[Rfam]
RNA sequence: CGAUCCCAUCGACCGAGUCACGCACGGCAGGAGCGGGGGACCCAGGUAAGUCGCCGGGCCGGGCGCCGUACGUCCUGUGUCGUACGCCGCGCCGGAACGGCUCGGGGUGAAGCCGUGCCCUCAAGGGCGCGGCCGGGCACCUCCCCGCCCGAACCCGACAGCUCACCCCGCAGGCGACGGAGAGGAAAUUC
Numbered sequence: 001c002g003a004u005c006c007c008a009u010c011g012a013c014c015g016a017g018u019c020a021c022g023c024a025c026g027g028c029a030g031g032a033g034c035g036g037g038g039g040a041c042c043c044a045g046g047u048a049a050g051u052c053g054c055c056g057g058g059c060c061g062g063g064c065g066c067c068g069u070a071c072g073u074c075c076u077g078u079g080u081c082g083u084a085c086g087c088c089g090c091g092c093c094g095g096a097a098c099g100g101c102u103c104g105g106g107g108u109g110a111a112g113c114c115g116u117g118c119c120c121u122c123a124a125g126g127g128c129g130c131g132g133c134c135g136g137g138c139a140c141c142u143c144c145c146c147g148c149c150c151g152a153a154c155c156c157g158a159c160a161g162c163u164c165a166c167c168c169c170g171c172a173g174g175c176g177a178c179g180g181a182g183a184g185g186a187a188a189u190u191c
Stems, first nucleotide, its partner, number of pairs: 001173001006031002033171006043104001105156003113132006135150004
RNA: c-di-AMP riboswitch aptamer (ydaO/yuaA leader)
Organism: Streptomyces sp. NTH33